[Rfam]
RNA sequence: AGCACACUUGAUGAACAACAAGGGACUUAAUACUGAAUGUAAUUGAUGUCACUACUUAUUUUUAUCUGAUGUGC
Numbered sequence: 001a002g003c004a005c006a007c008u009u010g011a012u013g014a015a016c017a018a019c020a021a022g023g024g025a026c027u028u029a030a031u032a033c034u035g036a037a038u039g040u041a042a043u044u045g046a047u048g049u050c051a052c053u054a055c056u057u058a059u060u061u062u063u064a065u066c067u068g069a070u071g072u073g074c
Stems, first nucleotide, its partner, number of pairs: 002074005
RNA: Small nucleolar RNA SNORD82
Organism: Oncorhynchus kisutch